[Rfam]
The family of this 280-nucleotide RNA sequence from Westerdykella ornata is "A. fumigatus sRNA Afu_309".
The literature on the family includes a 2008 paper in Nucleic Acids Res by Jochl et al., "Small ncRNA transcriptome analysis from Aspergillus fumigatus suggests a novel mechanism for regulation of protein synthesis".
It is annotated as a small RNA.
Nucleotides: 280
Stems, first nucleotide, its partner, number of pairs: 011130008019068002023064002026061004030055003034050001035048005076122001078120003084110003088106001090104001141199002156187003160184006166177001204273003207268001209266003220257005227251003232242004
Number, partner (000 for none) and nucleotide at each position: 001000u002000c003000c004000a005000u006000a007000a008000c009000c010000a011130c012129a013128a014127c015126c016125u017124g018123u019068g020067c021000u022000u023064g024063a025000u026061u027060g028059u029058c030055c031054c032053g033000u034050c035048c036047a037046c038045u039044c040000u041000c042000c043000g044039g045038a046037g047036u048035g049000u050034g051000c052000u053032c054031g055030g056000u057000u058029g059028a060027u061026g062000g063024u064023c065000u066000c067020g068019c069000a070000g071000u072000u073000c074000g075000u076122c077000c078120g079119c080118c081000c082000c083000a084110u085109g086108g087000a088106g089000c090104c091000a092000u093000c094000a095000a096000a097000u098000u099000c100000c101000c102000a103000u104090g105000a106088u107000g108086u109085c110084a111000a112000u113000c114000u115000u116000c117000c118080g119079g120078u121000c122076g123018a124017c125016a126015g127014g128013u129012u130011g131000g132000a133000g134000a135000g136000a137000g138000a139000g140000u141199c142198g143000g144000c145000g146000c147000g148000u149000u150000c151000c152000g153000g154000a155000a156187g157186c158185c159000u160184g161183a162182g163181u164180u165179c166177g167000a168000c169000c170000u171000c172000u173000g174000g175000u176000c177166u178000u179165g180164a181163g182162c183161u184160c185158g186157g187156u188000g189000g190000a191000a192000g193000g194000g195000c196000c197000g198142c199141g200000u201000u202000a203000g204273g205272g206271c207268g208000u209266c210265u211264g212000a213000u214000u215000c216000c217000u218000g219000a220257u221256c222255c223254u224253u225000u226000c227251g228250c229249u230000g231000a232242g233241g234240c235239c236000g237000u238000c239235g240234g241233c242232c243000g244000g245000u246000g247000a248000u249229a250228g251227c252000u253224a254223a255222g256221g257220a258000a259000a260000a261000a262000c263000c264211c265210a266209g267000u268207c269000c270000a271206g272205c273204c274000u275000a276000c277000a278000u279000a280000u
The match comes from Rfam's covariance-model search (132 bits).